[Rfam]
RNA sequence: AAUCAAAAACUGCCGAGUUUCCGCAAACCGGAAAACGGGGGAACCAUCUUUUGGGUGAAUUGGCCUCGCUUCACAGUGGCCAUAGGGGAACCUUCUACCGAACCCUCCAGCUAACCUCGUAGGCAUUGGAAGGAGUCACC
Dot-bracket structure: ..........((((...((((((.....))))))((((((.....(....).(((.....((((..............))))..((.(.......).))...))).........)))))).))))...............
c-di-AMP riboswitch aptamer (ydaO/yuaA leader): a 140-nucleotide RNA from Cohnella lupini. Lineage of the source: Bacteria > Bacillati > Bacillota > Paenibacillaceae > Cohnella.